[Rfam]
Source information:
Shown here is a 70-nucleotide RNA from Rhodovarius crocodyli, a member of the family "DUF3800-IX RNA". NCBI's taxonomy places the organism under Bacteria, Alphaproteobacteria, Acetobacterales, Roseomonadaceae, Rhodovarius.
RNA sequence: UCCACCCGCGCCGAACCGUCUCCGGAUGGUGGCGUGCCUCACGCUCGGUGGGAUAGGCCGGGUGGGCCUU
Numbered sequence: 001u002c003c004a005c006c007c008g009c010g011c012c013g014a015a016c017c018g019u020c021u022c023c024g025g026a027u028g029g030u031g032g033c034g035u036g037c038c039u040c041a042c043g044c045u046c047g048g049u050g051g052g053a054u055a056g057g058c059c060g061g062g063u064g065g066g067c068c069u070u
Stems, first nucleotide, its partner, number of pairs: 001066008010058003017034004022029002037052003
Actinobacteria, Firmicutes (1 example), Nitrospirae, Proteobacteria, Verrucomicrobia (1 example). It scores 53 bits against the family's covariance model.